[Rfam]
RNA sequence: UUUCGUAAAUCGCUUAAUCCAUUUUUGUGGAGCGGGGGACCCAAUUUUUUUUGUGCCAUUCAUAGGCACUUGGGGUGAAUCCUAUUGCAGGAGGGGCAACUCUCAGAUGUCCCAACCCGACAGCUAACUCCGUAAGCGUUUAGAGAGAGGAAUA
Numbered sequence: 001u002u003u004c005g006u007a008a009a010u011c012g013c014u015u016a017a018u019c020c021a022u023u024u025u026u027g028u029g030g031a032g033c034g035g036g037g038g039a040c041c042c043a044a045u046u047u048u049u050u051u052u053g054u055g056c057c058a059u060u061c062a063u064a065g066g067c068a069c070u071u072g073g074g075g076u077g078a079a080u081c082c083u084a085u086u087g088c089a090g091g092a093g094g095g096g097c098a099a100c101u102c103u104c105a106g107a108u109g110u111c112c113c114a115a116c117c118c119g120a121c122a123g124c125u126a127a128c129u130c131c132g133u134a135a136g137c138g139u140u141u142a143g144a145g146a147g148a149g150g151a152a153u154a
Stems, first nucleotide, its partner, number of pairs: 011138004018031003032133006042072002073118003081091003094112004
The family of this 154-nucleotide RNA sequence from Niallia taxi is "c-di-AMP riboswitch aptamer (ydaO/yuaA leader)". The source organism's lineage runs through Bacteria, Bacillati, Bacillota, Bacillaceae and Niallia. Its family is annotated with regulation of gene expression and cyclic-di-AMP binding in the Gene Ontology.